[Rfam]
RNA sequence: AAUUGUCUUCGGGGCAGGGUGAGGGAAUAUCUUAGAUAUUUCCAAUUCCCGAUCGGCGGUAGAGCCCGCGACCUUUUGUGGCGAGAGCCACAUUGGUGGACCUGGGGAAGUUCCAGGGCCGACGGUAUAGUCCGGAUGGGAGAAGACAGUA
Numbered sequence: 001a002a003u004u005g006u007c008u009u010c011g012g013g014g015c016a017g018g019g020u021g022a023g024g025g026a027a028u029a030u031c032u033u034a035g036a037u038a039u040u041u042c043c044a045a046u047u048c049c050c051g052a053u054c055g056g057c058g059g060u061a062g063a064g065c066c067c068g069c070g071a072c073c074u075u076u077u078g079u080g081g082c083g084a085g086a087g088c089c090a091c092a093u094u095g096g097u098g099g100a101c102c103u104g105g106g107g108a109a110g111u112u113c114c115a116g117g118g119c120c121g122a123c124g125g126u127a128u129a130g131u132c133c134g135g136a137u138g139g140g141a142g143a144a145g146a147c148a149g150u151a
Stems, first nucleotide, its partner, number of pairs: 003149008017050003052131002054121002056069004064119002073096002101117005123134003

Rfam assigns this 151-nucleotide RNA sequence from Dictyobacter alpinus to the family "FMN riboswitch aptamer (RFN element)". The literature on the family includes a 2002 paper in Nucleic Acids Res by Vitreschak et al., "Regulation of riboflavin biosynthesis and transport genes in bacteria by transcriptional and translational attenuation". Lineage of the source: Bacteria > Chloroflexota > Ktedonobacteria > Ktedonobacterales > Dictyobacter.